[Rfam]
RNA sequence: UGGGACAGCCAGGCGGCCGCGCGUCACGAAAGUGGCUCGAGGAACGUCCGGGCUCCACAGGGCAGGGUGGUGGGUAACGCCCACUCGGGGUAACCCGCAGGCAAGUGCCACAGAGAAUAGACCGCCUGCGUUUUCCGUUUUCGGAAAGCGGCAGGUAAGGGUGAAACGGUGGUGUAAGAGACCACCAGCUUCCCGGGUGACCGGGAAGGCUAGGUAAACCCCACCCGGAGCAAGGCCAGACAGGGCACGUUUGAGGGCUGCCCGCCCGAGUGUCCGGGUAGGCCGCUAGAGGGUGCCGGCAACGGUACCCGUAGAUGGAUGGCCGUCGCCCCCGUGACGGCAACGGCACGGGGGAACAGAACCCGGCGUAUCGGUUGUCCCAUCCG
Numbered sequence: 001u002g003g004g005a006c007a008g009c010c011a012g013g014c015g016g017c018c019g020c021g022c023g024u025c026a027c028g029a030a031a032g033u034g035g036c037u038c039g040a041g042g043a044a045c046g047u048c049c050g051g052g053c054u055c056c057a058c059a060g061g062g063c064a065g066g067g068u069g070g071u072g073g074g075u076a077a078c079g080c081c082c083a084c085u086c087g088g089g090g091u092a093a094c095c096c097g098c099a100g101g102c103a104a105g106u107g108c109c110a111c112a113g114a115g116a117a118u119a120g121a122c123c124g125c126c127u128g129c130g131u132u133u134u135c136c137g138u139u140u141u142c143g144g145a146a147a148g149c150g151g152c153a154g155g156u157a158a159g160g161g162u163g164a165a166a167c168g169g170u171g172g173u174g175u176a177a178g179a180g181a182c183c184a185c186c187a188g189c190u191u192c193c194c195g196g197g198u199g200a201c202c203g204g205g206a207a208g209g210c211u212a213g214g215u216a217a218a219c220c221c222c223a224c225c226c227g228g229a230g231c232a233a234g235g236c237c238a239g240a241c242a243g244g245g246c247a248c249g250u251u252u253g254a255g256g257g258c259u260g261c262c263c264g265c266c267c268g269a270g271u272g273u274c275c276g277g278g279u280a281g282g283c284c285g286c287u288a289g290a291g292g293g294u295g296c297c298g299g300c301a302a303c304g305g306u307a308c309c310c311g312u313a314g315a316u317g318g319a320u321g322g323c324c325g326u327c328g329c330c331c332c333c334g335u336g337a338c339g340g341c342a343a344c345g346g347c348a349c350g351g352g353g354g355a356a357c358a359g360a361a362c363c364c365g366g367c368g369u370a371u372c373g374g375u376u377g378u379c380c381c382a383u384c385c386g
Stems, first nucleotide, its partner, number of pairs: 001382010011371001012327007020039002023036005044369003048366005053230004060263004065226005070084005085099001086097004100221002105219002107215003122160002124156005129150009168186006188210001189208008234284004243275006255267004291310008

Rfam assigns this 386-nucleotide RNA sequence from Pseudarthrobacter chlorophenolicus to the family "Bacterial RNase P class A".
The source organism's lineage runs through Bacteria, Bacillati, Actinomycetota, Micrococcaceae and Pseudarthrobacter chlorophenolicus.
Rfam describes the family as follows. Ribonuclease P (RNase P) is a ubiquitous endoribonuclease, found in archaea, bacteria and eukarya as well as chloroplasts and mitochondria. Its best characterised activity is the generation of mature 5'-ends of tRNAs by cleaving the 5'-leader elements of precursor-tRNAs.
The family's RNA type in Rfam is ribozyme.